[Rfam]
About this RNA
The record is a 100-nucleotide RNA sequence from Salinibacillus xinjiangensis, which matches "S10-Clostridia ribosomal protein leader" in Rfam. It scores 36 bits against the family's covariance model. For this family Rfam cites "Discovery of 20 novel ribosomal leader candidates in bacteria and archaea" (Eckert and Weinberg, BMC Microbiol, 2020). By type it is a cis-regulatory leader. NCBI's taxonomy places the organism under Bacteria, Bacillota, Bacilli, Caryophanales, Salinibacillus.
RNA sequence: UAAAGGCGAUGAUGUGAAAGGUUGCUGAAACACCCGGCCCCUUUGCCAUGGCGGGCGUUGAGGAAAUUUUCACGGAGUAUGUCUAUUUAAAUAUGGGCGA
Numbered sequence: 001u002a003a004a005g006g007c008g009a010u011g012a013u014g015u016g017a018a019a020g021g022u023u024g025c026u027g028a029a030a031c032a033c034c035c036g037g038c039c040c041c042u043u044u045g046c047c048a049u050g051g052c053g054g055g056c057g058u059u060g061a062g063g064a065a066a067u068u069u070u071c072a073c074g075g076a077g078u079a080u081g082u083c084u085a086u087u088u089a090a091a092u093a094u095g096g097g098c099g100a
Base pairs, nucleotide, nucleotide: 014073015072016071018070019069020068021067025062026061028059029058080099081098082097083096